Notes:
This 83-nucleotide RNA sequence from Parabacteroides johnsonii belongs to the Rfam family "Bacteroidetes FopS (family of paralogous sRNAs)". It scores 58 bits against the family's covariance model. The literature on the family includes a 2025 paper in Nat Commun by Ruttiger et al., "The global RNA-binding protein RbpB is a regulator of polysaccharide utilization in Bacteroides thetaiotaomicron".
[Rfam]
RNA sequence: GUGGUUUUUUCAUAAUAGUAUUAGAUUUAAGGUUAACAAAGUUGGUUAGGGGUUGUCGUGAGACAGCCUUUAAUUGUUUAUAG
Numbered sequence: 001g002u003g004g005u006u007u008u009u010u011c012a013u014a015a016u017a018g019u020a021u022u023a024g025a026u027u028u029a030a031g032g033u034u035a036a037c038a039a040a041g042u043u044g045g046u047u048a049g050g051g052g053u054u055g056u057c058g059u060g061a062g063a064c065a066g067c068c069u070u071u072a073a074u075u076g077u078u079u080a081u082a083g
Stems, first nucleotide, its partner, number of pairs: 051068007